[Rfam]
Background: A member of the RNA family "Small nucleolar RNA SNORA81" from Oryzias latipes, 180 nucleotides long. Its family is annotated with nucleolus and RNA processing in the Gene Ontology. The family's RNA type in Rfam is H/ACA-box small nucleolar RNA. Taxonomically the source falls in Oryzias (Eukaryota, Teleostomi, Actinopterygii, Teleostei). Pairs were carried over by alignment from the consensus structure, which was predicted with WAR. On this family, see Gu et al., Nucleic Acids Res 2005: "A novel experimental approach for systematic identification of box H/ACA snoRNAs from eukaryotes".
RNA sequence: UCCUUCUGCAUCACCUGAAAUCUGCUAUAGUUGUGUGAUCCAGGCUUUCUGUUUCAUGCGAUGAUGCCAGCAGAGUAAAGCGCAGAAGGACAUUAUUGAGCACUGUGCUGAAAGUGAGAUGUGGUGGAACCUCUUUCUUAAUGUUCAUUGGCCUCGGUCUCAAGGCACAGUGCUACAGUU
Numbered sequence: 001u002c003c004u005u006c007u008g009c010a011u012c013a014c015c016u017g018a019a020a021u022c023u024g025c026u027a028u029a030g031u032u033g034u035g036u037g038a039u040c041c042a043g044g045c046u047u048u049c050u051g052u053u054u055c056a057u058g059c060g061a062u063g064a065u066g067c068c069a070g071c072a073g074a075g076u077a078a079a080g081c082g083c084a085g086a087a088g089g090a091c092a093u094u095a096u097u098g099a100g101c102a103c104u105g106u107g108c109u110g111a112a113a114g115u116g117a118g119a120u121g122u123g124g125u126g127g128a129a130c131c132u133c134u135u136u137c138u139u140a141a142u143g144u145u146c147a148u149u150g151g152c153c154u155c156g157g158u159c160u161c162a163a164g165g166c167a168c169a170g171u172g173c174u175a176c177a178g179u180u
Stems, first nucleotide, its partner, number of pairs: 021074001023072004030065004036056002041051003099174009122151001124149001127146003